[Rfam]
RNA sequence: GGAAGUUAAGAAAAUGUUUCUUAACUUCUAACUAAAAAAAGUAAGAACCGGUUCUUAAAAUCCUUAUUUAAGAACCGGUUCUUACUUUUUUUAGUUAAAAGUUAAAAAACAUUUUCUUAACUUCC
Numbered sequence: 001g002g003a004a005g006u007u008a009a010g011a012a013a014a015u016g017u018u019u020c021u022u023a024a025c026u027u028c029u030a031a032c033u034a035a036a037a038a039a040a041g042u043a044a045g046a047a048c049c050g051g052u053u054c055u056u057a058a059a060a061u062c063c064u065u066a067u068u069u070a071a072g073a074a075c076c077g078g079u080u081c082u083u084a085c086u087u088u089u090u091u092u093a094g095u096u097a098a099a100a101g102u103u104a105a106a107a108a109a110c111a112u113u114u115u116c117u118u119a120a121c122u123u124c125c
Stems, first nucleotide, its partner, number of pairs: 001125019021105007029097011041085007
The record is a 125-nucleotide sequence from Brassica napus, which matches "MIR9563 microRNA precursor family" in Rfam.
Lineage of the source: Eukaryota > Viridiplantae > Gunneridae > Pentapetalae > Brassica.
The match comes from Rfam's covariance-model search (107 bits).